[Rfam]
RNA sequence: GUCUGCCUGAGGCCCUUUUCACAUUGUACUACUGUGUCUCACUGUCAGAAGCAGUGCAAUAUCAAAAGGGCAUCAGACAGAU
Numbered sequence: 001g002u003c004u005g006c007c008u009g010a011g012g013c014c015c016u017u018u019u020c021a022c023a024u025u026g027u028a029c030u031a032c033u034g035u036g037u038c039u040c041a042c043u044g045u046c047a048g049a050a051g052c053a054g055u056g057c058a059a060u061a062u063c064a065a066a067a068g069g070g071c072a073u074c075a076g077a078c079a080g081a082u
Stems, first nucleotide, its partner, number of pairs: 001082003005078001007076004012071008023060008
Overview:
A member of the RNA family "mir-130 microRNA precursor family" from Microcaecilia unicolor, 82 nucleotides long. The literature on the family includes a 2002 paper in Curr Biol by Lagos-Quintana et al., "Identification of tissue-specific microRNAs from mouse".